Shown here is a 167-nucleotide sequence from Collinsella tanakaei, a member of the family "Lysine riboswitch aptamer". Pairs were carried over by alignment from the consensus structure, which is taken from published work. NCBI's taxonomy places the organism under Bacteria, Bacillati, Actinomycetota, Coriobacteriia, Collinsella tanakaei.
RNA sequence: CUACUCGAUAGAGGCGCGGGCGCGAAGAUGCGCGGGCGAGCCGGCAGGCGUCGACCCCGUGCGGAGGCAAACCCGCCGAAUCCUACCUCCGGGCGCGGAGGUUUGGGUGGGCCCGUGCGAAACACGUCCGGGACUGUCUGCAAGCAUGCAGGGGUGCUAUUCGAAGU
Numbered sequence: 001c002u003a004c005u006c007g008a009u010a011g012a013g014g015c016g017c018g019g020g021c022g023c024g025a026a027g028a029u030g031c032g033c034g035g036g037c038g039a040g041c042c043g044g045c046a047g048g049c050g051u052c053g054a055c056c057c058c059g060u061g062c063g064g065a066g067g068c069a070a071a072c073c074c075g076c077c078g079a080a081u082c083c084u085a086c087c088u089c090c091g092g093g094c095g096c097g098g099a100g101g102u103u104u105g106g107g108u109g110g111g112c113c114c115g116u117g118c119g120a121a122a123c124a125c126g127u128c129c130g131g132g133a134c135u136g137u138c139u140g141c142a143a144g145c146a147u148g149c150a151g152g153g154g155u156g157c158u159a160u161u162c163g164a165a166g167u
Stems, first nucleotide, its partner, number of pairs: 007161005016076005024068001030062007080108004085102007109135002112132004117127003137152006